[Rfam]
RNA sequence: GGAAGCCUUGAUUGUCCAAACGCAAUUCUUGUAAAUUUUAUUCCAAGAUUUGUGUAUGGACAUCACCGCUUUC
Number, nucleotide and partner (000 for none) at each position: 001g000002g072003a071004a070005g069006c068007c000008u000009u065010g064011a063012u062013u000014g061015u060016c059017c058018a057019a000020a000021c054022g053023c052024a051025a050026u000027u048028c047029u046030u045031g044032u000033a000034a000035a000036u000037u000038u000039u000040a000041u000042u000043c000044c031045a030046a029047g028048a027049u000050u025051u024052g023053u022054g021055u000056a000057u018058g017059g016060a015061c014062a012063u011064c010065a009066c000067c000068g006069c005070u004071u003072u002073c000

Overview: A member of the RNA family "mir-219 microRNA precursor family" from Folsomia candida, 73 nucleotides long. Rfam links the family to the GO terms RISC complex and miRNA-mediated post-transcriptional gene silencing. Lineage of the source: Eukaryota > Eumetazoa > Hexapoda > Collembola > Folsomia. Rfam 15.1 lists 1,318 matches to the family in 774 species. The base pairs follow the family's consensus structure, which was predicted with RNAalifold.